RNA sequence: UCGCUCAGUAGUCAGUGUAGAUUCUGUCUUUACAAUCAGCAGCUACAUCUGGCUACUGGGUCUCUGAUGACAUC
Numbered sequence: 001u002c003g004c005u006c007a008g009u010a011g012u013c014a015g016u017g018u019a020g021a022u023u024c025u026g027u028c029u030u031u032a033c034a035a036u037c038a039g040c041a042g043c044u045a046c047a048u049c050u051g052g053c054u055a056c057u058g059g060g061u062c063u064c065u066g067a068u069g070a071c072a073u074c
Base pairs, nucleotide, nucleotide: 005059006058007057008056009055010054012052013051014050015048016047017046018045019044020043024042025041026040027039
The family of this 74-nucleotide RNA sequence is "mir-221 microRNA precursor family". For this family Rfam cites "MicroRNA profile of Marek's disease virus-transformed T-cell line MSB-1: predominance of virus-encoded microRNAs" (Yao et al., J Virol, 2008).